[Rfam]
RNA sequence: AUGCAUUACUGUGUAAAUUGGGCUUCCCGUUCUACCAUACGGUGGGACCUUGAGCAGCAAUGCAAACAAUAAUAGUCGUUUGAUCGACAGUGGCCAGACAACCAUGGAGAUGGAUCCACAGACUCCAGAUGCUUAAUUUUGAUUGUCUACUGAUUCCACCUCACAUUU
Numbered sequence: 001a002u003g004c005a006u007u008a009c010u011g012u013g014u015a016a017a018u019u020g021g022g023c024u025u026c027c028c029g030u031u032c033u034a035c036c037a038u039a040c041g042g043u044g045g046g047a048c049c050u051u052g053a054g055c056a057g058c059a060a061u062g063c064a065a066a067c068a069a070u071a072a073u074a075g076u077c078g079u080u081u082g083a084u085c086g087a088c089a090g091u092g093g094c095c096a097g098a099c100a101a102c103c104a105u106g107g108a109g110a111u112g113g114a115u116c117c118a119c120a121g122a123c124u125c126c127a128g129a130u131g132c133u134u135a136a137u138u139u140u141g142a143u144u145g146u147c148u149a150c151u152g153a154u155u156c157c158a159c160c161u162c163a164c165a166u167u168u
Base pairs, nucleotide, nucleotide: 002064003063004062005061006060012056013055014054017051020049021048023046024045025044027042028041029040030039107162108161109160111158112157113156114155124145126141127140128139
small nucleolar RNA snoR143: a 168-nucleotide RNA sequence from Apostasia shenzhenica.
A search with the family's covariance model found it, with a score of 63 bits.
Rfam 15.1 lists 660 matches to the family in 212 species.
It is annotated as an H/ACA-box small nucleolar RNA.
Rfam links the family to the GO terms nucleolus and RNA processing.